The family of this 99-nucleotide RNA sequence from Megasphaera cerevisiae is "SAM riboswitch aptamer (S box leader)".
The family's consensus secondary structure is taken from published work.
[Rfam]
RNA sequence: AUUUCAUCAAGAGCAGUCGAGGGAAUGGCCUUAUGACACUGCGGCAACCCCCAUACGGGAUAGGUGCUACGUCCAGCGGAAAAAUCCGGCAGAUGAACA
Numbered sequence: 001a002u003u004u005c006a007u008c009a010a011g012a013g014c015a016g017u018c019g020a021g022g023g024a025a026u027g028g029c030c031u032u033a034u035g036a037c038a039c040u041g042c043g044g045c046a047a048c049c050c051c052c053a054u055a056c057g058g059g060a061u062a063g064g065u066g067c068u069a070c071g072u073c074c075a076g077c078g079g080a081a082a083a084a085u086c087c088g089g090c091a092g093a094u095g096a097a098c099a
Stems, first nucleotide, its partner, number of pairs: 003097006013042005021031003026075003043068004048064002051059002072091001077088004